The family of this 100-nucleotide sequence from Ruminococcaceae bacterium AF10-16 is "Bacterial small signal recognition particle RNA".
The source organism's lineage runs through Bacteria, Bacillati, Clostridia, Eubacteriales and Oscillospiraceae.
Rfam links the family to the GO terms signal recognition particle, plasma membrane targeting and SRP-dependent cotranslational protein targeting to membrane, signal sequence recognition.
[Rfam]
RNA sequence: GAACCGGUCUUGCGCAAUGGGUACCUGCGAACCAUGUCAGGCGGGGAACCGAGCAGCAUUAAGCGGGACCAUCCAUGUGCCGCAAGGACGCCGGUUCCGC
Numbered sequence: 001g002a003a004c005c006g007g008u009c010u011u012g013c014g015c016a017a018u019g020g021g022u023a024c025c026u027g028c029g030a031a032c033c034a035u036g037u038c039a040g041g042c043g044g045g046g047a048a049c050c051g052a053g054c055a056g057c058a059u060u061a062a063g064c065g066g067g068a069c070c071a072u073c074c075a076u077g078u079g080c081c082g083c084a085a086g087g088a089c090g091c092c093g094g095u096u097c098c099g100c
Base pairs, nucleotide, nucleotide: 004094005093006092007091008090009086010085011084012083013082014081015077017076018075019074020073021072022071024067025066026065027064028063034059035058036057037056042051043050044049
Dot-bracket structure: ...((((((((((((.((((((.(((((.....((((....(((....)))....))))...)))))...)))))))...))))))...)))))......